[Rfam]
Nucleotides: 045
Base pairs, nucleotide, nucleotide: 007026008025009024010023015038016037
Number, partner (000 for none) and nucleotide at each position: 001000u002000u003000u004000g005000g006000a007026c008025u009024g010023g011000u012000u013000c014000g015038u016037a017000a018000a019000c020000u021000u022000c023010c024009c025008a026007g027000a028000a029000u030000a031000a032000a033000a034000a035000a036000c037016u038015a039000a040000g041000a042000u043000g044000a045000a
The record is a 45-nucleotide RNA from Clostridiales bacterium CHKCI001, which matches "PreQ1 (pre queuosine) riboswitch aptamer" in Rfam.
Rfam 15.1 lists 873 matches to the family in 692 species.
Lineage of the source: Bacteria > Bacillati > Bacillota > Clostridia > Eubacteriales.
The pairing is the family consensus, mapped onto this sequence.
This family is a bacterial riboswitch that binds to the metabolite preQ1, an intermediate in the biosynthesis of the modified nucleoside queuosine from GTP. One example of this riboswitch is located in the leader of the Bacillus subtilis ykvJKLM (queCDEF) operon which encodes four genes necessary for queuosine production. PreQ1 binding to the riboswitch aptamer is thought to induce premature transcription termination within the leader to down-regulate expression of these genes.
For this family Rfam cites "Identification of four genes necessary for biosynthesis of the modified nucleoside queuosine" (Reader et al., J Biol Chem, 2004).
The match comes from Rfam's covariance-model search (48 bits).